[Rfam]
RNA sequence: UUUUUUUUUUUCCCCCUUUUGUAGACAUGCCAGAAAUGCCAAGAAAUGAGCAAAGAGUAAAAAAAAAAGCAACAGCCAAAAAACCCAGUUCUUGCUGAGGCAGGGUUUUCUUGUAAAGCUUCUCUUU
Numbered sequence: 001u002u003u004u005u006u007u008u009u010u011u012c013c014c015c016c017u018u019u020u021g022u023a024g025a026c027a028u029g030c031c032a033g034a035a036a037u038g039c040c041a042a043g044a045a046a047u048g049a050g051c052a053a054a055g056a057g058u059a060a061a062a063a064a065a066a067a068a069g070c071a072a073c074a075g076c077c078a079a080a081a082a083a084c085c086c087a088g089u090u091c092u093u094g095c096u097g098a099g100g101c102a103g104g105g106u107u108u109u110c111u112u113g114u115a116a117a118g119c120u121u122c123u124c125u126u127u
Stems, first nucleotide, its partner, number of pairs: 003057004008050003017044005062127002067121004080109007088101002092097001

The record is a 127-nucleotide RNA from Oxyruncus cristatus, which matches "Small nucleolar RNA SNORA14" in Rfam.
Gene Ontology terms of the family: nucleolus and RNA processing.
The organism belongs to Oxyruncus, within Eukaryota.
Rfam classes the family as an H/ACA-box small nucleolar RNA.
About the family: ACA14 is a member of the H/ACA class of snoRNA that guide the sites of modification of uridines to pseudouridines.